[Rfam]
RNA sequence: GUAAACUACCCACCACCAAUUGCUAAGAGCAAUAUGGUGGGGGCAAUAAACGCCCAGAGUUUACCCGGCAAGCGUGUUAAAUCACUACGAUUUUUAGGUCAUCUUACCUACAAAUACGCAGCCAGUUUGUAGCUCUAAGGUUAACGAUUAAACAAGCAUAUUGGGUUGAAGCUAGUGUCGUUGACGUAAAAAGCCUUUAAAUCAUUGCCCAGGCUAACUUUAC
Numbered sequence: 001g002u003a004a005a006c007u008a009c010c011c012a013c014c015a016c017c018a019a020u021u022g023c024u025a026a027g028a029g030c031a032a033u034a035u036g037g038u039g040g041g042g043g044c045a046a047u048a049a050a051c052g053c054c055c056a057g058a059g060u061u062u063a064c065c066c067g068g069c070a071a072g073c074g075u076g077u078u079a080a081a082u083c084a085c086u087a088c089g090a091u092u093u094u095u096a097g098g099u100c101a102u103c104u105u106a107c108c109u110a111c112a113a114a115u116a117c118g119c120a121g122c123c124a125g126u127u128u129g130u131a132g133c134u135c136u137a138a139g140g141u142u143a144a145c146g147a148u149u150a151a152a153c154a155a156g157c158a159u160a161u162u163g164g165g166u167u168g169a170a171g172c173u174a175g176u177g178u179c180g181u182u183g184a185c186g187u188a189a190a191a192a193g194c195c196u197u198u199a200a201a202u203c204a205u206u207g208c209c210c211a212g213g214c215u216a217a218c219u220u221u222a223c
Stems, first nucleotide, its partner, number of pairs: 001064007010043002013040006067209005072086001074085003089203005096196004104138002108132008116219001120215004140185009152176002155173003159169001
RNA: HNH endonuclease-associated RNA and ORF (HEARO) RNA